[Rfam]
RNA sequence: UGAGUAGGAAAGAUGAUCGCGGAUAUCUUGUAUAUUCGAGGAAAGUCCGAGCUCCGCAGGGCAGGGUGCUGGAUAACGUCCAGCGAGGGUGACCUCAGGGAAAGUGCCACAGAAAUGUGAACCGCCCGGCAUUGCCGGGUAAGGAUGGAACGGUGCGGUAAGAGCGCACCAGCAGUCGGGUGACCGACUGGCUAGGUAAACCCCAUCCGGAGCAAGACCGAAUAGGGAAGGGAUGAAGCUGCCCGCUGAUCCUUCCGGGUUGUGUCGCUAGAGCCGUCAGGCAACUGCCGGCCAAGAUAAAUGAUCAUCACCGUUAACGCGGAACAGAACUCGGCUUAAUGAAUACUCAGAUA
Numbered sequence: 001u002g003a004g005u006a007g008g009a010a011a012g013a014u015g016a017u018c019g020c021g022g023a024u025a026u027c028u029u030g031u032a033u034a035u036u037c038g039a040g041g042a043a044a045g046u047c048c049g050a051g052c053u054c055c056g057c058a059g060g061g062c063a064g065g066g067u068g069c070u071g072g073a074u075a076a077c078g079u080c081c082a083g084c085g086a087g088g089g090u091g092a093c094c095u096c097a098g099g100g101a102a103a104g105u106g107c108c109a110c111a112g113a114a115a116u117g118u119g120a121a122c123c124g125c126c127c128g129g130c131a132u133u134g135c136c137g138g139g140u141a142a143g144g145a146u147g148g149a150a151c152g153g154u155g156c157g158g159u160a161a162g163a164g165c166g167c168a169c170c171a172g173c174a175g176u177c178g179g180g181u182g183a184c185c186g187a188c189u190g191g192c193u194a195g196g197u198a199a200a201c202c203c204c205a206u207c208c209g210g211a212g213c214a215a216g217a218c219c220g221a222a223u224a225g226g227g228a229a230g231g232g233a234u235g236a237a238g239c240u241g242c243c244c245g246c247u248g249a250u251c252c253u254u255c256c257g258g259g260u261u262g263u264g265u266c267g268c269u270a271g272a273g274c275c276g277u278c279a280g281g282c283a284a285c286u287g288c289c290g291g292c293c294a295a296g297a298u299a300a301a302u303g304a305u306c307a308u309c310a311c312c313g314u315u316a317a318c319g320c321g322g323a324a325c326a327g328a329a330c331u332c333g334g335c336u337u338a339a340u341g342a343a344u345a346c347u348c349a350g351a352u353a
Stems, first nucleotide, its partner, number of pairs: 001349006010340001012309007020038007043337003047334005052212004059244004064208005069083005084098001085096004099203002104201002106197003122144002124140007152170006172192001173190007216266003219262001226256006237247003273292004278287003
The record is a 353-nucleotide RNA sequence from Sporomusa termitida, which matches "Bacterial RNase P class A" in Rfam.
The organism belongs to Sporomusa, within Bacteria.
It is annotated as a ribozyme.
Rfam's curators write: Ribonuclease P (RNase P) is a ubiquitous endoribonuclease, found in archaea, bacteria and eukarya as well as chloroplasts and mitochondria.
The base pairs follow the family's consensus structure, which is taken from published work.